[Rfam]
RNA sequence: CCACCCGGACGACCGGGCGGCCUUCGGCGGCCACCGGGAAGACCCGA
Numbered sequence: 001c002c003a004c005c006c007g008g009a010c011g012a013c014c015g016g017g018c019g020g021c022c023u024u025c026g027g028c029g030g031c032c033a034c035c036g037g038g039a040a041g042a043c044c045c046g047a
Base pairs, nucleotide, nucleotide: 001020002019004017005016006015007014008013035046036045037044038043
Shown here is a 47-nucleotide RNA from Streptomyces lacrimifluminis, a member of the family "Guanidine-II riboswitch aptamer (mini-ykkC)". Simpler in structure and has fewer highly conserved nucleotide positions than the ykkC-yxkD leader. Despite this each of its two stem-loop structures directly bind free guanidine. Therefore, mini-ykkC RNA motif represents a distinct class of guanidine-sensing RNAs. Gene Ontology term of the family: regulation of gene expression. The match comes from Rfam's covariance-model search (33 bits). The organism belongs to Streptomyces, within Bacteria.